[Rfam]
Nucleotides: 139
Base pairs, nucleotide, nucleotide: 022055023054024053025052026051028050029049030048036045037044038043090115091114092113093112094111095110096109097108098107099106100105129138130137131136
Number, partner (000 for none) and nucleotide at each position: 001000g002000u003000c004000c005000a006000a007000g008000u009000g010000u011000g012000c013000a014000c015000g016000g017000g018000c019000a020000a021000g022055a023054u024053c025052g026051g027000u028050a029049g030048c031000a032000g033000u034000g035000a036045a037044g038043a039000u040000u041000a042000g043038u044037c045036u046000g047000a048030g049029c050028u051026c052025u053024g054023a055022u056000u057000u058000u059000u060000g061000c062000u063000c064000g065000u066000u067000g068000a069000a070000a071000a072000c073000c074000a075000c076000a077000a078000c079000u080000a081000u082000a083000u084000u085000g086000a087000c088000g089000c090115u091114c092113c093112c094111g095110g096109u097108c098107u099106g100105c101000a102000u103000u104000u105100g106099c107098a108097g109096g110095u111094c112093g113092g114091g115090a116000a117000a118000u119000u120000u121000u122000u123000g124000g125000a126000a127000a128000u129138u130137a131136u132000u133000g134000c135000g136131a137130u138129g139000u
Annotation
U4 spliceosomal RNA: a 139-nucleotide sequence from Tuber magnatum. Its family is annotated with spliceosomal tri-snRNP complex assembly and U4 snRNP in the Gene Ontology. The match comes from Rfam's covariance-model search (84 bits). The base pairs follow the family's consensus structure, which is taken from published work. Lineage of the source: Eukaryota > Fungi > Pezizomycetes > Pezizales > Tuber.